Source information: Rfam assigns this 102-nucleotide RNA from Halobacillus karajensis to the family "Purine riboswitch aptamer". The base pairs follow the family's consensus structure, which is taken from published work.

RNA sequence: UUAUUAGAUGCAUUCUUCCUUCGUAUAUCCUCGGGAAUAUGGUCCGAGAGUCUCUACCGGGGCACCGUAAAAGCCCUGACUAUGGAGGUGGGAAUCACGUGA
Numbered sequence: 001u002u003a004u005u006a007g008a009u010g011c012a013u014u015c016u017u018c019c020u021u022c023g024u025a026u027a028u029c030c031u032c033g034g035g036a037a038u039a040u041g042g043u044c045c046g047a048g049a050g051u052c053u054c055u056a057c058c059g060g061g062g063c064a065c066c067g068u069a070a071a072a073g074c075c076c077u078g079a080c081u082a083u084g085g086a087g088g089u090g091g092g093a094a095u096c097a098c099g100u101g102a
Stems, first nucleotide, its partner, number of pairs: 018088008030048006058078006